Rfam assigns this 80-nucleotide RNA from Ancylobacter defluvii to the family "Makes More Granules Regulator RNA (mmgR)".
It is annotated as a small RNA.
Clan: suhB sRNA clan.
NCBI's taxonomy places the organism under Bacteria, Pseudomonadota, Hyphomicrobiales, Xanthobacteraceae, Ancylobacter.
About the family: SuhB later renamed mmgR (makes more granules regulator) was a putative non-coding RNA found multiple times in the Agrobacterium tumefaciens genome and related alpha-proteobacteria.
The pairing is the family consensus, mapped onto this sequence.

RNA sequence: CCGUGCAGCCCUCCUUGGGCGUUUCCUCCCUAGACUUGGGCCGCUCUCCUUCGUGUGAGCGGCCUCUUUCUUUUGUGCCG
Numbered sequence: 001c002c003g004u005g006c007a008g009c010c011c012u013c014c015u016u017g018g019g020c021g022u023u024u025c026c027u028c029c030c031u032a033g034a035c036u037u038g039g040g041c042c043g044c045u046c047u048c049c050u051u052c053g054u055g056u057g058a059g060c061g062g063c064c065u066c067u068u069u070c071u072u073u074u075g076u077g078c079c080g
Stems, first nucleotide, its partner, number of pairs: 008020004038065009